[Rfam]
RNA sequence: CUAAAUAAAUUAAACAAAAUUCGUAUAUGCCCAAAUAAUGAUGGCUUGGGUGUUUCUACAAGGAGCCAAAUCCUAACUACGAAUAUAUAGUAAAGUUAU
Number, nucleotide and partner (000 for none) at each position: 001c000002u000003a000004a000005a000006u000007a000008a000009a000010u000011u000012a000013a000014a000015c000016a000017a000018a000019a084020u083021u082022c081023g080024u079025a078026u000027a000028u000029g051030c050031c049032c048033a047034a046035a000036u000037a000038a000039u000040g000041a000042u000043g000044g000045c000046u034047u033048g032049g031050g030051u029052g000053u000054u000055u000056c000057u000058a000059c000060a000061a074062g073063g072064a071065g000066c000067c000068a000069a000070a000071u064072c063073c062074u061075a000076a000077c000078u025079a024080c023081g022082a021083a020084u019085a000086u000087a000088u000089a000090g000091u000092a000093a000094a000095g000096u000097u000098a000099u000

The family of this 99-nucleotide RNA from Clostridium baratii is "Purine riboswitch aptamer". The base pairs follow the family's consensus structure, which is taken from published work. The organism belongs to Clostridium baratii, within Bacteria.